RNA sequence: AAUUUGAAGGCGAGGAUUGGAAGGAAUUGAAUCUUUUUUACUUCAUGGUGAUGGAAGGUUCAAUUUCCUCCAAAAUCUCACAUUCAACUC
Dot-bracket structure: ...(((((...(((..(((((.((((((((.((.......................)).)))))))).)))))...)))...)))))...
Numbered sequence: 001a002a003u004u005u006g007a008a009g010g011c012g013a014g015g016a017u018u019g020g021a022a023g024g025a026a027u028u029g030a031a032u033c034u035u036u037u038u039u040a041c042u043u044c045a046u047g048g049u050g051a052u053g054g055a056a057g058g059u060u061c062a063a064u065u066u067c068c069u070c071c072a073a074a075a076u077c078u079c080a081c082a083u084u085c086a087a088c089u090c
Stems, first nucleotide, its partner, number of pairs: 004087005012079003017073005023067008032058002
Shown here is a 90-nucleotide RNA from Kingdonia uniflora, a member of the family "MIR2275 microRNA precursor family". Gene Ontology terms of the family: miRNA-mediated post-transcriptional gene silencing and RISC complex. The base pairs follow the family's consensus structure, which was predicted with RNAalifold.